The family of this 310-nucleotide RNA from Methanomassiliicoccales archaeon RumEn M2 is "Archaeal signal recognition particle RNA". The base pairs follow the family's consensus structure, which is taken from published work. The family is grouped with related families in Rfam's "SRP clan". Gene Ontology terms of the family: SRP-dependent cotranslational protein targeting to membrane, signal sequence recognition and signal recognition particle, plasma membrane targeting. A reference for the family is Wild et al. (2002), "Towards the structure of the mammalian signal recognition particle", Curr Opin Struct Biol.
RNA sequence: UGUCGGGCUUGACCGGGAUGUUUGGCGUAUCCUGCUAUCCGAAACCGUCAAUACGCGGAGGUGACAGCAGGGGGCGGCGUACAUGGAAGUCGCAGGCCCGCAGAGUUACCUAUGAAACUCUGUCUUGCGGGAUCAGUGUGCGCAUCGAGGGCAGCCGGAGGGUCGCCUUCCGUGCGCUAAUCGGGGGGAACGGGCCAGGCCCUGACGGGAGCAGUCUGACCCUGAGCUACUGAAGUUCGCAAGGUAGCGGGGUUGAGGAACGAUGCGGUAAACCUACGUCGGAAGUGGCGACAACCUCUGUGGCCCGGCA
Numbered sequence: 001u002g003u004c005g006g007g008c009u010u011g012a013c014c015g016g017g018a019u020g021u022u023u024g025g026c027g028u029a030u031c032c033u034g035c036u037a038u039c040c041g042a043a044a045c046c047g048u049c050a051a052u053a054c055g056c057g058g059a060g061g062u063g064a065c066a067g068c069a070g071g072g073g074g075c076g077g078c079g080u081a082c083a084u085g086g087a088a089g090u091c092g093c094a095g096g097c098c099c100g101c102a103g104a105g106u107u108a109c110c111u112a113u114g115a116a117a118c119u120c121u122g123u124c125u126u127g128c129g130g131g132a133u134c135a136g137u138g139u140g141c142g143c144a145u146c147g148a149g150g151g152c153a154g155c156c157g158g159a160g161g162g163u164c165g166c167c168u169u170c171c172g173u174g175c176g177c178u179a180a181u182c183g184g185g186g187g188g189a190a191c192g193g194g195c196c197a198g199g200c201c202c203u204g205a206c207g208g209g210a211g212c213a214g215u216c217u218g219a220c221c222c223u224g225a226g227c228u229a230c231u232g233a234a235g236u237u238c239g240c241a242a243g244g245u246a247g248c249g250g251g252g253u254u255g256a257g258g259a260a261c262g263a264u265g266c267g268g269u270a271a272a273c274c275u276a277c278g279u280c281g282g283a284a285g286u287g288g289c290g291a292c293a294a295c296c297u298c299u300g301u302g303g304c305c306c307g308g309c310a
Stems, first nucleotide, its partner, number of pairs: 001310009010064001012062003015033007038059004068300006076292001078290002080287003089280001091278002094275003098268005105261003109258003116254008124243008133233004138227001140177006147170006154163003181225006191218005200209003